[Rfam]
RNA: Ruegeria cis2 sRNA
RNA sequence: GCUGGUGUAAUGCGGAUUGUAAUUGAUAAAUGUGUAUCCCCGCGACUGAUCGAUGGCGUGGAACAGCGGGUUCCAGUCGAAGAACGCCAACAUCUUGGCCGGCAGCAUGUUGGCUACAAACAUCUUGCCCGAGGCGAUCAUGUUCACCCUGCUG
Numbered sequence: 001g002c003u004g005g006u007g008u009a010a011u012g013c014g015g016a017u018u019g020u021a022a023u024u025g026a027u028a029a030a031u032g033u034g035u036a037u038c039c040c041c042g043c044g045a046c047u048g049a050u051c052g053a054u055g056g057c058g059u060g061g062a063a064c065a066g067c068g069g070g071u072u073c074c075a076g077u078c079g080a081a082g083a084a085c086g087c088c089a090a091c092a093u094c095u096u097g098g099c100c101g102g103c104a105g106c107a108u109g110u111u112g113g114c115u116a117c118a119a120a121c122a123u124c125u126u127g128c129c130c131g132a133g134g135c136g137a138u139c140a141u142g143u144u145c146a147c148c149c150u151g152c153u154g
Stems, first nucleotide, its partner, number of pairs: 003034002006032003013025003038056002041052002064154004068149001071081003086147001089144005099133001100131003103127003107123002110119003